[Rfam]
RNA sequence: GGUCGUAAUUCGGCAGACGGAUUGAAGCGCGAGGACGCGGGGGCAGUACCCGCCGCCUCCACCACCAUCCAAGGACACUUGGGUGCUGUUGGGGGCGAACUAGGAUCGACUGCGCAGAGAGAUGUUAGACGCGGCCCGUUAGGCUAGCCCGUUAUGCUGGCAAGAAAGCAGAAAUGCCAACGACAACUCGCCCGUAAGGGCACAGGCUCUCGCCGCUUAA
Numbered sequence: 001g002g003u004c005g006u007a008a009u010u011c012g013g014c015a016g017a018c019g020g021a022u023u024g025a026a027g028c029g030c031g032a033g034g035a036c037g038c039g040g041g042g043g044c045a046g047u048a049c050c051c052g053c054c055g056c057c058u059c060c061a062c063c064a065c066c067a068u069c070c071a072a073g074g075a076c077a078c079u080u081g082g083g084u085g086c087u088g089u090u091g092g093g094g095g096c097g098a099a100c101u102a103g104g105a106u107c108g109a110c111u112g113c114g115c116a117g118a119g120a121g122a123u124g125u126u127a128g129a130c131g132c133g134g135c136c137c138g139u140u141a142g143g144c145u146a147g148c149c150c151g152u153u154a155u156g157c158u159g160g161c162a163a164g165a166a167a168g169c170a171g172a173a174a175u176g177c178c179a180a181c182g183a184c185a186a187c188u189c190g191c192c193c194g195u196a197a198g199g200g201c202a203c204a205g206g207c208u209c210u211c212g213c214c215g216c217u218u219a220a
Base pairs, nucleotide, nucleotide: 001136002135003134004133005132016126017125018124019123028114029113030112032111033110037053038052039051040050041049054097055096056095057094058093059092060091137151138150
About this RNA
Rfam assigns this 220-nucleotide RNA from a Pseudomonadota bacterium to the family "permuted transfer-messenger RNA". The sequence is in the family's curated seed alignment. Rfam describes the family as follows. Bacterial tmRNA, also known as 10Sa RNA or SsrA, is named for its dual tRNA and mRNA-like properties. Its role is to liberate the mRNA from a stalled ribosome. To accomplish this part of the tmRNA is used as a reading frame that ends in a translation stop signal. The broken mRNA is replaced in the ribosome by the tmRNA and translation of the tmRNA leads to addition of a proteolysis tag to the incomplete protein enabling recognition by a protease. Recently a number of permuted tmRNA genes have been found encoded in two parts. tmRNAs have been identified in eubacteria and some chloroplasts but are absent from archaeal and eukaryote nuclear genomes. By type it is a non-coding RNA gene.